[Rfam]
Nucleotides: 118
Base pairs, nucleotide, nucleotide: 005114006113007112008111009110010109017029018028019027031098032097033088034087035048036047037046038045043086044085051064052063053062068084069083070082071081072080090101091100092099
Number, partner (000 for none) and nucleotide at each position: 001000a002000u003000u004000a005114a006113u007112c008111u009110u010109c011000a012000g013000g014000g015000c016000a017029g018028g019027g020000u021000g022000a023000a024000a025000u026000u027019c028018c029017c030000u031098a032097c033088c034087g035048g036047c037046g038045g039000u040000a041000a042000a043086g044085c045038c046037c047036g048035c049000g050000a051064g052063c053062u054000a055000u056000g057000c058000a059000a060000a061000u062053g063052g064051c065000a066000g067000a068084u069083u070082c071081g072080g073000u074000u075000a076000g077000a078000u079000u080072c081071c082070g083069a084068a085044g086043c087034c088033g089000a090101c091100a092099g093000u094000a095000a096000a097032g098031u099092c100091u101090g102000g103000a104000u105000g106000a107000a108000a109010g110009a111008a112007g113006a114005u115000g116000u117000u118000a
Record summary: Shown here is a 118-nucleotide RNA sequence from Clostridium taeniosporum, a member of the family "FMN riboswitch aptamer (RFN element)". It scores 123 bits against the family's covariance model. The base pairs follow the family's consensus structure, which is taken from published work. The RFN element is a highly conserved domain that is found frequently in the 5'-untranslated regions of prokaryotic mRNAs that encode for flavin mononucleotide (FMN) biosynthesis and transport proteins. Gene Ontology term of the family: FMN binding.